The family of this 184-nucleotide RNA from Tomitella fengzijianii is "FMN riboswitch aptamer (RFN element)". From the family's description: The RFN element is a highly conserved domain that is found frequently in the 5'-untranslated regions of prokaryotic mRNAs that encode for flavin mononucleotide (FMN) biosynthesis and transport proteins.
RNA sequence: GGAAGUUCUCGGGGCGGGGUGCAAUUCCCCACCGGCGGUAAUGACGUCGAGCACACUGGUCGCCACCAGGUGUCGGCAUCGAGCCCGCGAGCGCCCUCGAACGGAGUGAUCCGCGCGAGGGGACGAGCAGAUUCCGGUGCGAUUCCGGAGCCGACGGUCACAGUCCGGAUGAGAGAGAACGCCA
Numbered sequence: 001g002g003a004a005g006u007u008c009u010c011g012g013g014g015c016g017g018g019g020u021g022c023a024a025u026u027c028c029c030c031a032c033c034g035g036c037g038g039u040a041a042u043g044a045c046g047u048c049g050a051g052c053a054c055a056c057u058g059g060u061c062g063c064c065a066c067c068a069g070g071u072g073u074c075g076g077c078a079u080c081g082a083g084c085c086c087g088c089g090a091g092c093g094c095c096c097u098c099g100a101a102c103g104g105a106g107u108g109a110u111c112c113g114c115g116c117g118a119g120g121g122g123a124c125g126a127g128c129a130g131a132u133u134c135c136g137g138u139g140c141g142a143u144u145c146c147g148g149a150g151c152c153g154a155c156g157g158u159c160a161c162a163g164u165c166c167g168g169a170u171g172a173g174a175g176a177g178a179a180c181g182c183c184a
Stems, first nucleotide, its partner, number of pairs: 005180006017029003031164002033153002035088004091128002133149005155167003
Gene Ontology term of the family: FMN binding. Lineage of the source: Bacteria > Bacillati > Actinomycetes > Mycobacteriales > Tomitella. The base pairs follow the family's consensus structure, which is taken from published work.